RNA sequence: GGAUAAUACUGUUUUGCUAUCCCCAAUCAAUAACACAAUGACACGUGAAAAAGUUAUCUCACGUGUCAUUGCGUUAUUGACUGGAGAUAGCAAAAAGUGUUAUCUCC
Numbered sequence: 001g002g003a004u005a006a007u008a009c010u011g012u013u014u015u016g017c018u019a020u021c022c023c024c025a026a027u028c029a030a031u032a033a034c035a036c037a038a039u040g041a042c043a044c045g046u047g048a049a050a051a052a053g054u055u056a057u058c059u060c061a062c063g064u065g066u067c068a069u070u071g072c073g074u075u076a077u078u079g080a081c082u083g084g085a086g087a088u089a090g091c092a093a094a095a096a097g098u099g100u101u102a103u104c105u106c107c
Stems, first nucleotide, its partner, number of pairs: 002106002005103001012095009023084003027080008036071013050057001
The family of this 107-nucleotide RNA from Prunus yedoensis is "MIR6274 microRNA precursor family". The match comes from Rfam's covariance-model search (97 bits).